A member of the RNA family "SAM (S-adenosyl methionine) riboswitch aptamer" from Cryptosporangium arvum, 121 nucleotides long. SAM-IV is a mRNA element that regulates gene expression via direct sensing of S-adenosylmethionine (SAM or AdoMet). The match comes from Rfam's covariance-model search (103 bits). The base pairs follow the family's consensus structure, which is taken from published work. NCBI's taxonomy places the organism under Bacteria, Cryptosporangiales, Cryptosporangiaceae, Cryptosporangium, Cryptosporangium arvum.
[Rfam]
RNA sequence: GGUCAUGAGUGCCAGCGCCAAGCCCCGGCUCGCUGGCCGGCAACCCUCCACGGUUCGCGGUGGGGUGCCCCGGGUGAAGACCUGGCCCGACCGUGGUCCUCACGGCGGGCAAGCGCGGACC
Numbered sequence: 001g002g003u004c005a006u007g008a009g010u011g012c013c014a015g016c017g018c019c020a021a022g023c024c025c026c027g028g029c030u031c032g033c034u035g036g037c038c039g040g041c042a043a044c045c046c047u048c049c050a051c052g053g054u055u056c057g058c059g060g061u062g063g064g065g066u067g068c069c070c071c072g073g074g075u076g077a078a079g080a081c082c083u084g085g086c087c088c089g090a091c092c093g094u095g096g097u098c099c100u101c102a103c104g105g106c107g108g109g110c111a112a113g114c115g116c117g118g119a120c121c
Stems, first nucleotide, its partner, number of pairs: 001082004009038001011037006021030002039069003044065003048060002085110005091105005

Clan: SAM clan.